Annotation: The family of this 111-nucleotide RNA sequence from Medicago truncatula is "MIR5284 microRNA precursor family". Taxonomically the source falls in Medicago (Eukaryota, Viridiplantae, eudicotyledons, Fabales). Its family is annotated with miRNA-mediated post-transcriptional gene silencing and RISC complex in the Gene Ontology.

[Rfam]
RNA sequence: CUCUAAUUUCAUAUUCAUCCGCUUUUGGUCCCUCAUUUCACGUAUCACGCACACAUAUUCUUUUGACGUGGUGAAAUGAGGGACCAAAAGUGGAAGAAUAUGAAAUUACAG
Numbered sequence: 001c002u003c004u005a006a007u008u009u010c011a012u013a014u015u016c017a018u019c020c021g022c023u024u025u026u027g028g029u030c031c032c033u034c035a036u037u038u039c040a041c042g043u044a045u046c047a048c049g050c051a052c053a054c055a056u057a058u059u060c061u062u063u064u065g066a067c068g069u070g071g072u073g074a075a076a077u078g079a080g081g082g083a084c085c086a087a088a089a090g091u092g093g094a095a096g097a098a099u100a101u102g103a104a105a106u107u108a109c110a111g
Base pairs, nucleotide, nucleotide: 004108005107006106007105008104009103010102011101012100013099014098015097016096018094019093020092021091022090023089024088025087026086027085028084029083030082031081032080033079034078035077036076037075038074039073044072045071046070047069048068049067053063055061